[Rfam]
RNA sequence: UACCCGGUGGUGUAACGGUAACACAAGAGGUUUUGGUCCUCUCGUUCUAGGUUCGAAUCCUAGCCGGGUAG
Numbered sequence: 001u002a003c004c005c006g007g008u009g010g011u012g013u014a015a016c017g018g019u020a021a022c023a024c025a026a027g028a029g030g031u032u033u034u035g036g037u038c039c040u041c042u043c044g045u046u047c048u049a050g051g052u053u054c055g056a057a058u059c060c061u062a063g064c065c066g067g068g069u070a071g
Stems, first nucleotide, its partner, number of pairs: 001070007010024004026042005047063005
RNA: tRNA